[Rfam]
RNA sequence: ACAGCAACCUUAACAAAAGCAUUGACUGGUUUCUUUUUGCAGUAAGUGCUUUUUGUUGAGGUAUCGUUA
Numbered sequence: 001a002c003a004g005c006a007a008c009c010u011u012a013a014c015a016a017a018a019g020c021a022u023u024g025a026c027u028g029g030u031u032u033c034u035u036u037u038u039g040c041a042g043u044a045a046g047u048g049c050u051u052u053u054u055g056u057u058g059a060g061g062u063a064u065c066g067u068u069a
Stems, first nucleotide, its partner, number of pairs: 004065001007062005013056005018050006025043003
Source information
A member of the RNA family "miR-430 microRNA precursor family" from Salvelinus namaycush, 69 nucleotides long. A search with the family's covariance model found it, with a score of 62 bits. The family has 32 seed sequences and 24,817 matches in Rfam 15.1. Clan: mir-290 clan. For this family Rfam cites "MicroRNAs regulate brain morphogenesis in zebrafish" (Giraldez et al., Science, 2005).